[Rfam]
RNA: DUF3800-VII RNA
RNA sequence: GGCAGGCAAGCGCCGGAAUCGUCUCGAGUUGCCCAAACGGCAGCAGCAUCCUUUGCGAUGUGGAUCCAGGGGCCCGGGGGCCUGCCACUUC
Numbered sequence: 001g002g003c004a005g006g007c008a009a010g011c012g013c014c015g016g017a018a019u020c021g022u023c024u025c026g027a028g029u030u031g032c033c034c035a036a037a038c039g040g041c042a043g044c045a046g047c048a049u050c051c052u053u054u055g056c057g058a059u060g061u062g063g064a065u066c067c068a069g070g071g072g073c074c075c076g077g078g079g080g081c082c083u084g085c086c087a088c089u090u091c
Stems, first nucleotide, its partner, number of pairs: 001086007011078001013077004021073005028044006047060004